[Rfam]
RNA sequence: UGUGAGAGUGAUGAGUUGCACUGAUCAGUCGGGGUGUGUGUUGCAGUGGCAACAGCACCUCGAUCCGACCCAACCUGCGGACACACAAUGUGCACAGGGGCCAUCUGACUCAAC
Numbered sequence: 001u002g003u004g005a006g007a008g009u010g011a012u013g014a015g016u017u018g019c020a021c022u023g024a025u026c027a028g029u030c031g032g033g034g035u036g037u038g039u040g041u042u043g044c045a046g047u048g049g050c051a052a053c054a055g056c057a058c059c060u061c062g063a064u065c066c067g068a069c070c071c072a073a074c075c076u077g078c079g080g081a082c083a084c085a086c087a088a089u090g091u092g093c094a095c096a097g098g099g100g101c102c103a104u105c106u107g108a109c110u111c112a113a114c
Base pairs, nucleotide, nucleotide: 006111007110008109025068026067028065029063030062031061032060034058035057036056040053041052042051043050044049

About this RNA: The record is a 114-nucleotide sequence from Dicentrarchus labrax, which matches "Small nucleolar RNA SNORD67" in Rfam. It is annotated as a C/D-box small nucleolar RNA. The family has 15 seed sequences and 781 matches in Rfam 15.1. On this family, see Huttenhofer et al., EMBO J 2001: "RNomics: an experimental approach that identifies 201 candidates for novel, small, non-messenger RNAs in mouse". From the family's description: snoRNA HBII-166 belongs to the C/D family of snoRNAs. NCBI's taxonomy places the organism under Eukaryota, Teleostomi, Ctenosquamata, Eupercaria, Dicentrarchus.